[Rfam]
RNA sequence: UGAACCUUUAAUUCAGUCCCGUGAGGCUGGCAAGGUAACGUGAAUGGGUUUCUUAGGGAGACUGCGCUUAUGGCGUUGGUCUGCCUUGGAUCCACAUGACAGUCAUGGUUGUAAACUGUGACUAAAGACUCCUUGCCUAAAUAUAGGUAAGGAGUCUUUUUU
Numbered sequence: 001u002g003a004a005c006c007u008u009u010a011a012u013u014c015a016g017u018c019c020c021g022u023g024a025g026g027c028u029g030g031c032a033a034g035g036u037a038a039c040g041u042g043a044a045u046g047g048g049u050u051u052c053u054u055a056g057g058g059a060g061a062c063u064g065c066g067c068u069u070a071u072g073g074c075g076u077u078g079g080u081c082u083g084c085c086u087u088g089g090a091u092c093c094a095c096a097u098g099a100c101a102g103u104c105a106u107g108g109u110u111g112u113a114a115a116c117u118g119u120g121a122c123u124a125a126a127g128a129c130u131c132c133u134u135g136c137c138u139a140a141a142u143a144u145a146g147g148u149a150a151g152g153a154g155u156c157u158u159u160u161u162u
Stems, first nucleotide, its partner, number of pairs: 004036005013030006055086003059082006126157014
RNA: PyrR binding site
Organism: Paenibacillus anaericanus